[Rfam]
RNA sequence: CACCCGGGACGUCCCGGGUGCUUUUCGAUUUUUUAGGGGACGUCCCCA
Numbered sequence: 001c002a003c004c005c006g007g008g009a010c011g012u013c014c015c016g017g018g019u020g021c022u023u024u025u026c027g028a029u030u031u032u033u034u035a036g037g038g039g040a041c042g043u044c045c046c047c048a
Stems, first nucleotide, its partner, number of pairs: 001020008036047004
RNA: Guanidine-II riboswitch aptamer (mini-ykkC)
Organism: Taxus chinensis